[Rfam]
RNA sequence: GUCAUGCGGGAUCGCCGUCGGUCAGCGCGUUGCGCCCACCGGCGCGAUCCUC
Dot-bracket structure: ...............(((((((..((((...))))..)))))))........
A member of the RNA family "ffh sRNA" from Amaricoccus sp. HAR-UPW-R2A-40, 52 nucleotides long. The literature on the family includes a 2009 paper in BMC Genomics by Meyer et al., "Identification of candidate structured RNAs in the marine organism 'Candidatus Pelagibacter ubique'". Taxonomically the source falls in Amaricoccus (Bacteria, Pseudomonadati, Pseudomonadota, Paracoccaceae).